[Rfam]
RNA sequence: AGGUCAUUUCAAAGAAAGCUUAUGGGAACAAAACCGGGAACUCUUAAUGCUGUGACCUAAGAUUAAAAUUCUCCAUGUGAUGUAGUAUUCCCUCAAUAGUGCUAUGUUUUCCUGAGGUGAUAUAAGA
Numbered sequence: 001a002g003g004u005c006a007u008u009u010c011a012a013a014g015a016a017a018g019c020u021u022a023u024g025g026g027a028a029c030a031a032a033a034c035c036g037g038g039a040a041c042u043c044u045u046a047a048u049g050c051u052g053u054g055a056c057c058u059a060a061g062a063u064u065a066a067a068a069u070u071c072u073c074c075a076u077g078u079g080a081u082g083u084a085g086u087a088u089u090c091c092c093u094c095a096a097u098a099g100u101g102c103u104a105u106g107u108u109u110u111c112c113u114g115a116g117g118u119g120a121u122a123u124a125a126g127a
Stems, first nucleotide, its partner, number of pairs: 002057006014045002017042002020039002023037001025034001070120002073117002077113001079111002085105003090101001092099002
Small nucleolar RNA SNORA25: a 127-nucleotide sequence from Phyllostomus discolor. The family's RNA type in Rfam is H/ACA-box small nucleolar RNA. The source organism's lineage runs through Eukaryota, Metazoa, Eumetazoa, Theria and Phyllostomus. ACA25 is a member of the H/ACA class of snoRNA that guide the sites of modification of uridines to pseudouridines. The base pairs follow the family's consensus structure, which was predicted with RNAfold.